The family of this 100-nucleotide RNA is "PhotoRC-II RNA".
The sequence is in the family's curated seed alignment.
The base pairs follow the family's consensus structure, which is taken from published work.
RNA sequence: CAACAUAUUCCUACUGCUCUCAACCGAGACCUCUAUAGGCAGUCUAAUACUUCGUCUCUCAUAUCCGAAAGUGAAGGGAUUUUCGGAAAUAAGUAUCGCA
Numbered sequence: 001c002a003a004c005a006u007a008u009u010c011c012u013a014c015u016g017c018u019c020u021c022a023a024c025c026g027a028g029a030c031c032u033c034u035a036u037a038g039g040c041a042g043u044c045u046a047a048u049a050c051u052u053c054g055u056c057u058c059u060c061a062u063a064u065c066c067g068a069a070a071g072u073g074a075a076g077g078g079a080u081u082u083u084c085g086g087a088a089a090u091a092a093g094u095a096u097c098g099c100a
Stems, first nucleotide, its partner, number of pairs: 013043005019038002026058005065086007